[Rfam]
RNA sequence: CACGUGCUUCGGGGUCGGUGUAAUUCCGAACCGGUGGUGAUAGUCCACGACCCGUCACGCUGCGCAAGCAGGGCGACGGUUGAUCUGGUGAAACUCCAGGACCGACGGUGAAAGUCCGGAUGGGAGAAGUUCACG
Numbered sequence: 001c002a003c004g005u006g007c008u009u010c011g012g013g014g015u016c017g018g019u020g021u022a023a024u025u026c027c028g029a030a031c032c033g034g035u036g037g038u039g040a041u042a043g044u045c046c047a048c049g050a051c052c053c054g055u056c057a058c059g060c061u062g063c064g065c066a067a068g069c070a071g072g073g074c075g076a077c078g079g080u081u082g083a084u085c086u087g088g089u090g091a092a093a094c095u096c097c098a099g100g101a102c103c104g105a106c107g108g109u110g111a112a113a114g115u116c117c118g119g120a121u122g123g124g125a126g127a128a129g130u131u132c133a134c135g
Base pairs, nucleotide, nucleotide: 004132006130007129008128009127010126016028017027018026030115031114032104033103034048035047036046037045043102044101052079053078054077055076056075084100085099086098087097088096106118107117108116